[Rfam]
RNA sequence: AAUUCACAAGACGCAGUGUAUGGGCUAUGAUUCGGUCAUGGAUCGGAUCAGGCCCAGGAAAGUCCCCGGGCCCAUUAACUGCAGAGAUGCAGUCUUGGUGAAACUCUGAAAGAGUACCCUUUAUCGUAUAAUUCACUCGCACACGUGCGGGAUGGCUGAGACACGUGUGGAGCCGUUGUAAUUACACGUAAGGGUUAGUUGGCCGAUACUAUCACAGUUAUUCACACCAUUUAUAACUGAACGGGGCUUACGAUCUUGUGAAU
Numbered sequence: 001a002a003u004u005c006a007c008a009a010g011a012c013g014c015a016g017u018g019u020a021u022g023g024g025c026u027a028u029g030a031u032u033c034g035g036u037c038a039u040g041g042a043u044c045g046g047a048u049c050a051g052g053c054c055c056a057g058g059a060a061a062g063u064c065c066c067c068g069g070g071c072c073c074a075u076u077a078a079c080u081g082c083a084g085a086g087a088u089g090c091a092g093u094c095u096u097g098g099u100g101a102a103a104c105u106c107u108g109a110a111a112g113a114g115u116a117c118c119c120u121u122u123a124u125c126g127u128a129u130a131a132u133u134c135a136c137u138c139g140c141a142c143a144c145g146u147g148c149g150g151g152a153u154g155g156c157u158g159a160g161a162c163a164c165g166u167g168u169g170g171a172g173c174c175g176u177u178g179u180a181a182u183u184a185c186a187c188g189u190a191a192g193g194g195u196u197a198g199u200u201g202g203c204c205g206a207u208a209c210u211a212u213c214a215c216a217g218u219u220a221u222u223c224a225c226a227c228c229a230u231u232u233a234u235a236a237c238u239g240a241a242c243g244g245g246g247c248u249u250a251c252g253a254u255c256u257u258g259u260g261a262a263u
Stems, first nucleotide, its partner, number of pairs: 002263010016227004022055004029044006060249003064246004080091004114129004131199003138194001144188004153175004163168001
Rfam assigns this 263-nucleotide RNA from Acer yangbiense to the family "RNase MRP". Pairs were carried over by alignment from the consensus structure, which is taken from published work. RNase MRP is an enzymatically active ribonucleoprotein with two distinct roles in eukaryotes. In mitochondria it plays a direct role in the initiation of mitochondrial DNA replication. In the nucleus it is involved in precursor rRNA processing, where it cleaves the internal transcribed spacer 1 between 18S and 5.8S rRNAs. Despite distinct functions, RNase MRP has been shown to be evolutionarily related to RNase P. Like eukaryotic RNase P, RNase MRP is not catalytically active without associated protein subunits. Gene Ontology terms of the family: ribonuclease MRP activity, rRNA processing and ribonuclease MRP complex. It scores 58 bits against the family's covariance model.